Annotation
This 92-nucleotide RNA sequence from Paraconexibacter algicola belongs to the Rfam family "ZMP/ZTP riboswitch aptamer (pfl RNA motif)".

RNA sequence: CGCCGUCGUCGCGACUGGCGCCGUACGGGUGGGGUUCACCACCGGGGAGCGACGACACCGAGCAGGACCCGUCGCGCGCCUGGGCACCACGU
Dot-bracket structure: ....((((((((..(([[[[[.......((((......))))..))..))))))))..............(((..]]]]]..))).......
Numbered sequence: 001c002g003c004c005g006u007c008g009u010c011g012c013g014a015c016u017g018g019c020g021c022c023g024u025a026c027g028g029g030u031g032g033g034g035u036u037c038a039c040c041a042c043c044g045g046g047g048a049g050c051g052a053c054g055a056c057a058c059c060g061a062g063c064a065g066g067a068c069c070c071g072u073c074g075c076g077c078g079c080c081u082g083g084g085c086a087c088c089a090c091g092u
Stems, first nucleotide, its partner, number of pairs: 005056008015046002017080005029042004071085003
Lineage of the source: Bacteria > Actinomycetota > Thermoleophilia > Solirubrobacterales > Paraconexibacter.
Gene Ontology terms of the family: regulation of purine nucleotide biosynthetic process and one-carbon metabolic process.